[Rfam]
RNA: MIR396 microRNA precursor family
RNA sequence: GGUCAUGCUAUUCCACAGCUUUCUUGAACUUUCUUGUACUAUUCUUUUGAUCUCUAUAGAUUGAAUAGGUAGCACCUUGGAAGCUCAAGAAAGCUGUGGGAAAACAUGGCAU
Numbered sequence: 001g002g003u004c005a006u007g008c009u010a011u012u013c014c015a016c017a018g019c020u021u022u023c024u025u026g027a028a029c030u031u032u033c034u035u036g037u038a039c040u041a042u043u044c045u046u047u048u049g050a051u052c053u054c055u056a057u058a059g060a061u062u063g064a065a066u067a068g069g070u071a072g073c074a075c076c077u078u079g080g081a082a083g084c085u086c087a088a089g090a091a092a093g094c095u096g097u098g099g100g101a102a103a104a105c106a107u108g109g110c111a112u
Base pairs, nucleotide, nucleotide: 003109004108005107006106007105013099014098015097017095018094019093020092021091022090024088025087026086027085029083030082031081032080033079